RNA sequence: AGAAUCCCGUCCGUGCGCUGGUAGCGACAGGGUGCGGAACCGAGUCCUUGGGCCGUCUUCGGCGACGGAGCCGGUUAAGCGUAGGACAGGGGUGUGCAGGCCGUAACGCCAGUGAACCGAUGGAGCCUCGAAAAUUCGCGCGGGAGCCGACCACGUCCUGACGAUGGGAAGGCCCGGGCUGAACCGGCGAUAGGCUGCAAAUGCCAUGCGAGCCGGGGAGUGUCCCGCCGGGGUCCAAGAGGA
Numbered sequence: 001a002g003a004a005u006c007c008c009g010u011c012c013g014u015g016c017g018c019u020g021g022u023a024g025c026g027a028c029a030g031g032g033u034g035c036g037g038a039a040c041c042g043a044g045u046c047c048u049u050g051g052g053c054c055g056u057c058u059u060c061g062g063c064g065a066c067g068g069a070g071c072c073g074g075u076u077a078a079g080c081g082u083a084g085g086a087c088a089g090g091g092g093u094g095u096g097c098a099g100g101c102c103g104u105a106a107c108g109c110c111a112g113u114g115a116a117c118c119g120a121u122g123g124a125g126c127c128u129c130g131a132a133a134a135u136u137c138g139c140g141c142g143g144g145a146g147c148c149g150a151c152c153a154c155g156u157c158c159u160g161a162c163g164a165u166g167g168g169a170a171g172g173c174c175c176g177g178g179c180u181g182a183a184c185c186g187g188c189g190a191u192a193g194g195c196u197g198c199a200a201a202u203g204c205c206a207u208g209c210g211a212g213c214c215g216g217g218g219a220g221u222g223u224c225c226c227g228c229c230g231g232g233g234u235c236c237a238a239g240a241g242g243a
Base pairs, nucleotide, nucleotide: 012036013035014034015033016032018030019029020028025197040090041089044087046085047084048083049081050080051076052075053074054073055072057070058069059068060067061066123235125234126233127232128231129230130229140228141227142226143225144224145223146173147172148171151167152166153165180220184216185215186214187213188212

This 243-nucleotide RNA from Pararhodospirillum oryzae belongs to the Rfam family "Group II catalytic intron D1-D4-6". For this family Rfam cites "The ins and outs of group II introns" (Bonen and Vogel, Trends Genet, 2001).